Overview: Rfam assigns this 74-nucleotide RNA sequence from Anabarilius grahami to the family "Small nucleolar RNA SNORD2". The literature on the family includes a 2004 paper in Gene by Zhou et al., "Identification of a novel box C/D snoRNA from mouse nucleolar cDNA library".
RNA sequence: GUAUGAAGUGAUGGUUACCAUCUUUCGGGACUGACCUAUUAUGGAGAUAUUUACAACUUUACUACUGAUCAUAC
Numbered sequence: 001g002u003a004u005g006a007a008g009u010g011a012u013g014g015u016u017a018c019c020a021u022c023u024u025u026c027g028g029g030a031c032u033g034a035c036c037u038a039u040u041a042u043g044g045a046g047a048u049a050u051u052u053a054c055a056a057c058u059u060u061a062c063u064a065c066u067g068a069u070c071a072u073a074c
Stems, first nucleotide, its partner, number of pairs: 001074006
Overview: The family's consensus secondary structure was predicted with WAR. Rfam classes the family as a C/D-box small nucleolar RNA.